[Rfam]
RNA sequence: CUUGAUCGACCCCAGCCACAGCGGCUCCGACCGGUCCUGGCCGUAGGUCGCGAGCAGCGCCUGCGCCUC
Numbered sequence: 001c002u003u004g005a006u007c008g009a010c011c012c013c014a015g016c017c018a019c020a021g022c023g024g025c026u027c028c029g030a031c032c033g034g035u036c037c038u039g040g041c042c043g044u045a046g047g048u049c050g051c052g053a054g055c056a057g058c059g060c061c062u063g064c065g066c067c068u069c
Stems, first nucleotide, its partner, number of pairs: 014026004027063001032059002037054002041050001043048001

Shown here is a 69-nucleotide sequence from Kutzneria kofuensis, a member of the family "ASpks TB sRNA".
NCBI's taxonomy places the organism under Bacteria, Actinomycetes, Pseudonocardiales, Pseudonocardiaceae, Kutzneria.
It is annotated as an antisense RNA.
The base pairs follow the family's consensus structure, which is taken from published work.
The family has 77 seed sequences and 9,052 matches in Rfam 15.1.